[Rfam]
RNA sequence: GGCCUGUAGUUACUGGACACUCAUUUGUGCAUGCAGUGCUUCAAUUGGUAGAGAUGGCCCAAAAGUGAUACUGUGGUUCACACGUAAUGUCUGUGAUGCAUGAGAAGCUUUCAUAGCCCGGUCACAGUUCCAGAC
Numbered sequence: 001g002g003c004c005u006g007u008a009g010u011u012a013c014u015g016g017a018c019a020c021u022c023a024u025u026u027g028u029g030c031a032u033g034c035a036g037u038g039c040u041u042c043a044a045u046u047g048g049u050a051g052a053g054a055u056g057g058c059c060c061a062a063a064a065g066u067g068a069u070a071c072u073g074u075g076g077u078u079c080a081c082a083c084g085u086a087a088u089g090u091c092u093g094u095g096a097u098g099c100a101u102g103a104g105a106a107g108c109u110u111u112c113a114u115a116g117c118c119c120g121g122u123c124a125c126a127g128u129u130c131c132a133g134a135c
Stems, first nucleotide, its partner, number of pairs: 001059004007050002010047001012045001014043004019037003071127001073125006083116001084114002087111001089109001091107002094104001
The family of this 135-nucleotide RNA from Penelope pileata is "Small nucleolar RNA SNORA84".
It is annotated as an H/ACA-box small nucleolar RNA.
Rfam 15.1 lists 757 matches to the family in 629 species.
The family's consensus secondary structure was predicted with WAR.
Lineage of the source: Eukaryota > Opisthokonta > Chordata > Galliformes > Penelope.